Annotation:
The family of this 113-nucleotide RNA sequence from Anguilla anguilla is "Potassium channel RNA editing signal". This family represents a group of sequences related to the human potassium channel Kv1.1 hairpin element which directs the efficient modification of an adenosine to inosine by an adenosine deaminase acting on RNA (ADAR). The ADAR modification causes an isoleucine/valine recoding event which lies in the ion-conducting pore of the potassium channel. It is thought that this editing event targets the process of fast inactivation and allows a more rapid recovery from inactivation at negative potentials. Taxonomically the source falls in Anguilla (Eukaryota, Gnathostomata, Teleostei, Anguilliformes). The match comes from Rfam's covariance-model search (83 bits). The family's RNA type in Rfam is cis-regulatory element.

Nucleotides: 113
Stems, first nucleotide, its partner, number of pairs: 004109001006107005012101003017096002020093001036076002039073001048062003
Number, partner (000 for none) and nucleotide at each position: 001000c002000c003000a004109g005000g006107u007106a008105c009104g010103g011000u012101g013100a014099c015000a016000u017096g018095g019000u020093u021000c022000c023000c024000a025000a026000a027000a028000c029000c030000a031000u032000c033000g034000u035000g036076g037075g038000g039073a040000a041000g042000a043000u044000a045000u046000u047000u048062g049061g050060g051000u052000c053000g054000a055000u056000c057000u058000g059000c060050u061049c062048c063000c064000u065000g066000a067000g068000c069000g070000g071000g072000g073039u074000g075037c076036u077000g078000g079000u080000g081000a082000u083000c084000g085000c086000c087000c088000u089000g090000c091000c092000c093020g094000u095018c096017c097000c098000g099014g100013u101012c102000a103010u104009c105008g106007u107006g108000u109004c110000c111000a112000a113000c